[Rfam]
RNA sequence: GGCUGGUCAGAAGCAGUGUGGUUUACAACUAAUUGAUCACAACCACUUACAGAUUAUUUGUUCCUUCUCCCCUCCCACUGCUUCAUUUGACUAGCCUUAA
Numbered sequence: 001g002g003c004u005g006g007u008c009a010g011a012a013g014c015a016g017u018g019u020g021g022u023u024u025a026c027a028a029c030u031a032a033u034u035g036a037u038c039a040c041a042a043c044c045a046c047u048u049a050c051a052g053a054u055u056a057u058u059u060g061u062u063c064c065u066u067c068u069c070c071c072c073u074c075c076c077a078c079u080g081c082u083u084c085a086u087u088u089g090a091c092u093a094g095c096c097u098u099a100a
Stems, first nucleotide, its partner, number of pairs: 001096008010088002013084001015079004020074001027062003031058002

Rfam assigns this 100-nucleotide sequence from Macaca fascicularis to the family "Y RNA".
Pairs were carried over by alignment from the consensus structure, which is taken from published work.
NCBI's taxonomy places the organism under Eukaryota, Chordata, Craniata, Simiiformes, Macaca.
A search with the family's covariance model found it, with a score of 67 bits.
Rfam classes the family as a non-coding RNA gene.
Rfam's curators write: Y RNAs are components of the Ro ribonucleoprotein particle (Ro RNP), in association with Ro60 and La proteins. The Y RNAs and Ro60 and La proteins are well conserved, but the function of the Ro RNP is not known. In humans the RNA component can be one of four small RNAs -- hY1, hY3, hY4 and hY5. These small RNAs are predicted to fold into a conserved secondary structure containing three stem structures.